[Rfam]
RNA sequence: CCAUAAGUCGAGGUCCACCCAUACUGUGCUACUGUCCUGCACAGAGGUGUGACCUCCAUUAGCACAGUACAGGUGGACCUCGACUUAACGG
Numbered sequence: 001c002c003a004u005a006a007g008u009c010g011a012g013g014u015c016c017a018c019c020c021a022u023a024c025u026g027u028g029c030u031a032c033u034g035u036c037c038u039g040c041a042c043a044g045a046g047g048u049g050u051g052a053c054c055u056c057c058a059u060u061a062g063c064a065c066a067g068u069a070c071a072g073g074u075g076g077a078c079c080u081c082g083a084c085u086u087a088a089c090g091g
Base pairs, nucleotide, nucleotide: 001091002090005086006085007084008083009082010081012079013078014077015076016075017074018073019072022069023068024067025066026065027064028063029062030061
RNA: mir-130 microRNA precursor family
Organism: Pseudonaja textilis